[Rfam]
RNA sequence: UUCUUAUCCAGAGAGACGGAGGGAUUGGCCCGAUGAAGUCUCAGCAACCAGCCAGAUGGCAUUGGUGCUAAUUCCAAAAGGUGUGAUCGCCUUGAAGAUAAGAA
Numbered sequence: 001u002u003c004u005u006a007u008c009c010a011g012a013g014a015g016a017c018g019g020a021g022g023g024a025u026u027g028g029c030c031c032g033a034u035g036a037a038g039u040c041u042c043a044g045c046a047a048c049c050a051g052c053c054a055g056a057u058g059g060c061a062u063u064g065g066u067g068c069u070a071a072u073u074c075c076a077a078a079a080g081g082u083g084u085g086a087u088c089g090c091c092u093u094g095a096a097g098a099u100a101a102g103a104a
Stems, first nucleotide, its partner, number of pairs: 001104008013042005021031003025077004043069004048065002051060003073096001078093006